[Rfam]
RNA sequence: CGCCCUGCACGCGACUGGCGAUAGGCCCUGAUCCAAAAGGAUACGGGGCUGAUGUGGGACACCACAGGGAAGCGUUGCCGCACGGUGGUUACAAGCCGUAGCGAUCAGCCGUUCGCCUGGGCAGCCCUG
Number, nucleotide and partner (000 for none) at each position: 001c000002g000003c000004c000005c080006u000007g078008c077009a075010c074011g073012c072013g000014a000015c069016u068017g117018g116019c115020g114021a113022u000023a000024g000025g000026c000027c000028c000029u000030g000031a000032u000033c000034c000035a000036a000037a000038a000039g000040g000041a000042u000043a000044c000045g000046g000047g000048g000049c000050u000051g000052a000053u000054g065055u064056g063057g062058g000059a000060c000061a000062c057063c056064a055065c054066a000067g000068g016069g015070a000071a000072g012073c011074g010075u009076u000077g008078c007079c000080g005081c000082a000083c000084g000085g000086u000087g000088g000089u000090u000091a000092c000093a000094a000095g000096c000097c000098g000099u000100a000101g000102c000103g000104a000105u000106c124107a000108g122109c121110c120111g000112u000113u021114c020115g019116c018117c017118u000119g000120g110121g109122c108123a000124g106125c000126c000127c000128u000129g000